The family of this 144-nucleotide sequence from Castor canadensis is "Small nucleolar RNA SNORA48".
From the family's description: The snoRNA ACA 48 has been identified to guide pseudouridylation of the residue U3797 in the 28S rRNA subunit.
The family's RNA type in Rfam is H/ACA-box small nucleolar RNA.
NCBI's taxonomy places the organism under Eukaryota, Opisthokonta, Bilateria, Tetrapoda, Castor.
RNA sequence: AACCCCCGUCAGUGAACAAAGAGACACCUCAUUGGUGGUGUUGCUCUUACAUCAGUCAGGUGCAGAACAGAUGACAUUCCUUUGUUCAUCCUAGCUUGAUGCCUGGGUCAGUGGCCAAAGAUGUUUCAUGUCUAGGGCACAUAA
Number, nucleotide and partner (000 for none) at each position: 001a000002a000003c062004c000005c060006c059007c000008g057009u000010c000011a000012g000013u054014g053015a052016a000017c000018a000019a048020a047021g046022a000023g042024a041025c040026a039027c038028c037029u000030c000031a000032u000033u000034g000035g000036u000037g028038g027039u026040g025041u024042u023043g000044c000045u000046c021047u020048u019049a000050c000051a000052u015053c014054a013055g000056u000057c008058a000059g006060g005061u000062g003063c000064a000065g000066a000067a000068c000069a000070g000071a000072u000073g000074a000075c000076a000077u000078u000079c000080c000081u000082u000083u139084g138085u137086u136087c135088a000089u000090c000091c000092u000093a000094g000095c000096u000097u000098g132099a131100u130101g000102c000103c000104u128105g127106g126107g000108u000109c123110a122111g000112u120113g000114g000115c000116c000117a000118a000119a000120g112121a000122u110123g109124u000125u000126u106127c105128a104129u000130g100131u099132c098133u000134a000135g087136g086137g085138c084139a083140c000141a000142u000143a000144a000